[Rfam]
RNA sequence: UUAUCGUGACACUUGUCGGCUUACCGAGACUCAACGUCGACAAUAAACAUUAGUCUCUCAUACCUCUCCUUCAGGGUGGAGAGGAAUAUUCUUUUCG
Number, nucleotide and partner (000 for none) at each position: 001u000002u000003a000004u000005c000006g000007u000008g000009a000010c000011a000012c000013u000014u000015g000016u040017c039018g038019g037020c036021u000022u034023a000024c000025c000026g057027a056028g055029a054030c053031u000032c000033a000034a022035c000036g020037u019038c018039g017040a016041c000042a000043a000044u000045a000046a000047a000048c000049a000050u000051u000052a000053g030054u029055c028056u027057c026058u000059c000060a000061u000062a000063c084064c083065u082066c081067u080068c079069c078070u000071u000072c000073a000074g000075g000076g000077u000078g069079g068080a067081g066082a065083g064084g063085a000086a000087u000088a000089u000090u000091c000092u000093u000094u000095u000096c000097g000